[Rfam]
RNA sequence: UAUCACUAAGGAUUGUUUUUUUCGCAAAAUUUUUCCUGCGAAAGACAGAAAGGACUCAAGCUAGCCACACACAUAGGCUGGUUUAGAUUCAUAAAUAUAAAAGGACAAG
Dot-bracket structure: ...................(((((((..........)))))))................(((((((.........)))))))...........................
Rfam assigns this 109-nucleotide RNA sequence from Vibrio genomosp. F6 to the family "gltS RNA". Rfam's curators put it in the seed alignment. The family's consensus secondary structure is taken from published work.